The family of this 51-nucleotide RNA is "chrB-b RNA".

[Rfam]
RNA sequence: GCGGGCCAACGCGGGCGCCCGUAGGAGACGGCUUUCCCGUCCAAGUCCUGC
Numbered sequence: 001g002c003g004g005g006c007c008a009a010c011g012c013g014g015g016c017g018c019c020c021g022u023a024g025g026a027g028a029c030g031g032c033u034u035u036c037c038c039g040u041c042c043a044a045g046u047c048c049u050g051c
Base pairs, nucleotide, nucleotide: 001022002021003020004019005018006017011051012050013049014048015047027041028040029039030038031037
Pairs were carried over by alignment from the consensus structure, which is taken from published work.